This 175-nucleotide RNA sequence from Propionigenium maris belongs to the Rfam family "Lysine riboswitch aptamer". Lineage of the source: Bacteria > Fusobacteriota > Fusobacteriales > Propionigenium > Propionigenium maris.

RNA sequence: UAUCUUGAUAGAGGUUGCAUUGAAGAUGAAUAUCCCAGGGGAGGCUGCCAGCCAUAGAGAUUGGGGGAAAGGCUUUGAUGCCGAAGGAUGCUCUCGUGGCGAGGGAGUGUUGCUGGGAGUGUGGUGAAGAGCUACACUACUGUCACUAUUAUUUUGGUGGAGAGCUAUCUGAAGG
Numbered sequence: 001u002a003u004c005u006u007g008a009u010a011g012a013g014g015u016u017g018c019a020u021u022g023a024a025g026a027u028g029a030a031u032a033u034c035c036c037a038g039g040g041g042a043g044g045c046u047g048c049c050a051g052c053c054a055u056a057g058a059g060a061u062u063g064g065g066g067g068a069a070a071g072g073c074u075u076u077g078a079u080g081c082c083g084a085a086g087g088a089u090g091c092u093c094u095c096g097u098g099g100c101g102a103g104g105g106a107g108u109g110u111u112g113c114u115g116g117g118a119g120u121g122u123g124g125u126g127a128a129g130a131g132c133u134a135c136a137c138u139a140c141u142g143u144c145a146c147u148a149u150u151a152u153u154u155u156g157g158u159g160g161a162g163a164g165c166u167a168u169c170u171g172a173a174g175g
Stems, first nucleotide, its partner, number of pairs: 007169005017081009033066006085114002087111009115141002118138008143160006

It scores 104 bits against the family's covariance model.